[Rfam]
The record is an 88-nucleotide RNA sequence from Plasticicumulans acidivorans, which matches "t44 RNA" in Rfam. Rfam classes the family as a small RNA.

RNA sequence: AGGGCAAUGCAAACACUUCUCACACGUGGCCGUCACGACUGGCGGGGUGCCUUUACAGGUCGCCGGUUGGGGUGCGUGGAGGCUAAAC
Numbered sequence: 001a002g003g004g005c006a007a008u009g010c011a012a013a014c015a016c017u018u019c020u021c022a023c024a025c026g027u028g029g030c031c032g033u034c035a036c037g038a039c040u041g042g043c044g045g046g047g048u049g050c051c052u053u054u055a056c057a058g059g060u061c062g063c064c065g066g067u068u069g070g071g072g073u074g075c076g077u078g079g080a081g082g083c084u085a086a087a088c
Stems, first nucleotide, its partner, number of pairs: 023078005029073003036069009049060004